The family of this 93-nucleotide RNA from Vulpes vulpes is "mir-8799 microRNA precursor family". Gene Ontology terms of the family: miRNA-mediated post-transcriptional gene silencing and RISC complex. A search with the family's covariance model found it, with a score of 50 bits. The source organism's lineage runs through Eukaryota, Gnathostomata, Euteleostomi, Tetrapoda and Vulpes. Pairs were carried over by alignment from the consensus structure, which was predicted with RNAalifold. Its Rfam clan is "mir-8791 microRNA precursor clan".

[Rfam]
RNA sequence: GUGGGAGCAUUGGAUCCUCGGCUGUGUCCCCCGGAGCCCUGGGCUCCGGGGCCUGGGCUGCUGGAAUCACACUCCUGGGUCACGCAGCCCCCU
Numbered sequence: 001g002u003g004g005g006a007g008c009a010u011u012g013g014a015u016c017c018u019c020g021g022c023u024g025u026g027u028c029c030c031c032c033g034g035a036g037c038c039c040u041g042g043g044c045u046c047c048g049g050g051g052c053c054u055g056g057g058c059u060g061c062u063g064g065a066a067u068c069a070c071a072c073u074c075c076u077g078g079g080u081c082a083c084g085c086a087g088c089c090c091c092c093u
Stems, first nucleotide, its partner, number of pairs: 001092001003090003010084001011082003016078002020074002023071004027065002031063001032060003037055001041053001043052003